L31-Actinobacteria ribosomal protein leader: a 56-nucleotide sequence from Mycolicibacterium rhodesiae. Rfam's curators put it in the seed alignment. Its Rfam clan is "Ribosomal Protein L31 Leader clan". By type it is a cis-regulatory leader. The family's consensus secondary structure is taken from published work. Taxonomically the source falls in Mycolicibacterium rhodesiae (Bacteria, Actinomycetota, Mycobacteriaceae, Mycobacterium).
RNA sequence: CAGGUACCGGUUCACGCUCGAUUACCAGGGAAAACCUGGUGGGCGACCCGGCGACC
Numbered sequence: 001c002a003g004g005u006a007c008c009g010g011u012u013c014a015c016g017c018u019c020g021a022u023u024a025c026c027a028g029g030g031a032a033a034a035c036c037u038g039g040u041g042g043g044c045g046a047c048c049c050g051g052c053g054a055c056c
Stems, first nucleotide, its partner, number of pairs: 003056003007051004015045005